[Rfam]
RNA sequence: UGUUAAAUUUUUUAACCAUAUUUGCUGCUAAAAACUGACGUAGUUAAUAGAAUAAUUAGAUAAUGAGACAUGACAUGCCAUAAGUACUUUAUACUAACGUACAAAAACCAAUUUUUAACAAUAAAAAUGAAUGAAAUAUUUAACG
Dot-bracket structure: .(((((((.(((((...((.((((.(..(((((...............................................................................)))))..).)))).))...))))).))))))).